[Rfam]
RNA sequence: GUUGCUUCAUAUGGUGAAUCCCUUCUUGACAUUUGUGAGGGGUGUUCUAGUUUCCGAAGCAUAGAUCAAAUGGAAGUUCAUAACAGCACUGUGCUUUUCUCAUCGCACUUUGCUACCUGUCUCCUUCUACAGCU
Numbered sequence: 001g002u003u004g005c006u007u008c009a010u011a012u013g014g015u016g017a018a019u020c021c022c023u024u025c026u027u028g029a030c031a032u033u034u035g036u037g038a039g040g041g042g043u044g045u046u047c048u049a050g051u052u053u054c055c056g057a058a059g060c061a062u063a064g065a066u067c068a069a070a071u072g073g074a075a076g077u078u079c080a081u082a083a084c085a086g087c088a089c090u091g092u093g094c095u096u097u098u099c100u101c102a103u104c105g106c107a108c109u110u111u112g113c114u115a116c117c118u119g120u121c122u123c124c125u126u127c128u129a130c131a132g133c134u
Stems, first nucleotide, its partner, number of pairs: 003061006016047004020042005072128005085114003091108003
RNA: small nucleolar RNA snoR137
Organism: Cuscuta campestris